[Rfam]
RNA sequence: CUUCGGAGUAGAAGCAGUCAGACGCCCCAGGCGUCCGGUCAUUGCUCCAGCA
Numbered sequence: 001c002u003u004c005g006g007a008g009u010a011g012a013a014g015c016a017g018u019c020a021g022a023c024g025c026c027c028c029a030g031g032c033g034u035c036c037g038g039u040c041a042u043u044g045c046u047c048c049a050g051c052a
Stems, first nucleotide, its partner, number of pairs: 005048006015037001019038001021035006